[Rfam]
RNA sequence: ACAAGGCACUUUUGUAAGCCGCUCUGGAUAAGAGCGUCUGCGAAAUGCUGUAAA
Numbered sequence: 001a002c003a004a005g006g007c008a009c010u011u012u013u014g015u016a017a018g019c020c021g022c023u024c025u026g027g028a029u030a031a032g033a034g035c036g037u038c039u040g041c042g043a044a045a046u047g048c049u050g051u052a053a054a
Stems, first nucleotide, its partner, number of pairs: 013043001014041003020036006

Rfam assigns this 54-nucleotide RNA sequence from Electrophorus electricus to the family "UnaL2 LINE 3' element".
A search with the family's covariance model found it, with a score of 57 bits.
NCBI's taxonomy places the organism under Eukaryota, Eumetazoa, Craniata, Actinopteri, Electrophorus.